A member of the RNA family "Glycine riboswitch aptamer" from Slackia heliotrinireducens, 104 nucleotides long. The match comes from Rfam's covariance-model search (52 bits). Taxonomically the source falls in Slackia heliotrinireducens (Bacteria, Actinomycetota, Coriobacteriia, Eggerthellaceae).
RNA sequence: GAGUUGUGUCCAAGAGAGAGUCGGUAACGACCGCUGAAGAGGCAAGCGCUUUGGAGUGGCAAGCAAGGCGUGAAACUUUCAAGCAAAAGGACUGGACUCAACUA
Numbered sequence: 001g002a003g004u005u006g007u008g009u010c011c012a013a014g015a016g017a018g019a020g021u022c023g024g025u026a027a028c029g030a031c032c033g034c035u036g037a038a039g040a041g042g043c044a045a046g047c048g049c050u051u052u053g054g055a056g057u058g059g060c061a062a063g064c065a066a067g068g069c070g071u072g073a074a075a076c077u078u079u080c081a082a083g084c085a086a087a088a089g090g091a092c093u094g095g096a097c098u099c100a101a102c103u104a
Stems, first nucleotide, its partner, number of pairs: 006099001008097005020031004033084003036080002040078003046071008